[Rfam]
RNA sequence: AAGUGGGUUACCCCUCCCCAACGGGGGGCAACUAUCUGGAAGGAUAGAGUAA
Numbered sequence: 001a002a003g004u005g006g007g008u009u010a011c012c013c014c015u016c017c018c019c020a021a022c023g024g025g026g027g028g029c030a031a032c033u034a035u036c037u038g039g040a041a042g043g044a045u046a047g048a049g050u051a052a
Stems, first nucleotide, its partner, number of pairs: 011028006032047006